[Rfam]
Overview: A member of the RNA family "Enterobacterial sRNA STnc550" from Enterobacteriaceae bacterium RIT714, 389 nucleotides long. It is annotated as a small RNA. The match comes from Rfam's covariance-model search (375 bits). The base pairs follow the family's consensus structure, which was predicted with CMfinder. NCBI's taxonomy places the organism under Bacteria, Pseudomonadati, Pseudomonadota, Gammaproteobacteria, Enterobacteriaceae.
RNA sequence: UACAUGUCACUCCAGACCAUAUCUUAAACUCCUGAAAUACUUAAAGGUAAACGUUUGCCUUCUCUCACCCUUAUCUCGCAAUGUGAAUUGCGAUACGCCGGGAAAACGACUCAGAACGUCAGGAGGGGGUCAGUGGCCGGUACGCUUAUAAAUUUAGCGUGGAAUUUUGUCUCAUCUUGAUGAAAAGGGGAAGAGCAAAAACGGUUAUCAGCCUAAAUCCAGGAAGAUUUUUGGGGUAAACUGUGUAAAAAUGAGCAAGCUCACUAUUCGUGGGGAGAUUAAAAGGAGAAAAAUUGAUGAGUACCGAUCUUAAGUUUUCGCUGACGACAACUAUUAUUGUUCUGGCUCUGAUUGUCGCUGCGGGUCUGACCGCUGCACUGCACUGAUUU
Numbered sequence: 001u002a003c004a005u006g007u008c009a010c011u012c013c014a015g016a017c018c019a020u021a022u023c024u025u026a027a028a029c030u031c032c033u034g035a036a037a038u039a040c041u042u043a044a045a046g047g048u049a050a051a052c053g054u055u056u057g058c059c060u061u062c063u064c065u066c067a068c069c070c071u072u073a074u075c076u077c078g079c080a081a082u083g084u085g086a087a088u089u090g091c092g093a094u095a096c097g098c099c100g101g102g103a104a105a106a107c108g109a110c111u112c113a114g115a116a117c118g119u120c121a122g123g124a125g126g127g128g129g130u131c132a133g134u135g136g137c138c139g140g141u142a143c144g145c146u147u148a149u150a151a152a153u154u155u156a157g158c159g160u161g162g163a164a165u166u167u168u169g170u171c172u173c174a175u176c177u178u179g180a181u182g183a184a185a186a187g188g189g190g191a192a193g194a195g196c197a198a199a200a201a202c203g204g205u206u207a208u209c210a211g212c213c214u215a216a217a218u219c220c221a222g223g224a225a226g227a228u229u230u231u232u233g234g235g236g237u238a239a240a241c242u243g244u245g246u247a248a249a250a251a252u253g254a255g256c257a258a259g260c261u262c263a264c265u266a267u268u269c270g271u272g273g274g275g276a277g278a279u280u281a282a283a284a285g286g287a288g289a290a291a292a293a294u295u296g297a298u299g300a301g302u303a304c305c306g307a308u309c310u311u312a313a314g315u316u317u318u319c320g321c322u323g324a325c326g327a328c329a330a331c332u333a334u335u336a337u338u339g340u341u342c343u344g345g346c347u348c349u350g351a352u353u354g355u356c357g358c359u360g361c362g363g364g365u366c367u368g369a370c371c372g373c374u375g376c377a378c379u380g381c382a383c384u385g386a387u388u389u
Base pairs, nucleotide, nucleotide: 015131016130017129018128020126030124031123032122033121034120035119042093045060046059047058048057049056050055078091079090080089081088082087098114100112143195145193146192149163152160153159170188171187172186175183176182265284267282270279271278